Rfam assigns this 134-nucleotide RNA sequence from Myotis davidii to the family "U11 spliceosomal RNA". The source organism's lineage runs through Eukaryota, Bilateria, Sarcopterygii, Chiroptera and Myotis. The family's consensus secondary structure is taken from published work. It scores 97 bits against the family's covariance model. Rfam links the family to the GO terms U11 snRNP, pre-mRNA 5'-splice site binding and mRNA 5'-splice site recognition.
RNA sequence: AAAAAGGGCUUCUGUGGUGAGUGGUUCACGUAGAGCAGCCUUAUUGCUCUUUGUGCGGAAUCAACAUCAAGAGAUUUCGGAAGCAUCAUUUUUUGGCAUUUGGGCAGCUGGUAAUUGUUGGUCCUGGCGCCAUC
Numbered sequence: 001a002a003a004a005a006g007g008g009c010u011u012c013u014g015u016g017g018u019g020a021g022u023g024g025u026u027c028a029c030g031u032a033g034a035g036c037a038g039c040c041u042u043a044u045u046g047c048u049c050u051u052u053g054u055g056c057g058g059a060a061u062c063a064a065c066a067u068c069a070a071g072a073g074a075u076u077u078c079g080g081a082a083g084c085a086u087c088a089u090u091u092u093u094u095g096g097c098a099u100u101u102g103g104g105c106a107g108c109u110g111g112u113a114a115u116u117g118u119u120g121g122u123c124c125u126g127g128c129g130c131c132a133u134c
Stems, first nucleotide, its partner, number of pairs: 008084005014025002017022001027055004032050007056079007103131003107128005114122003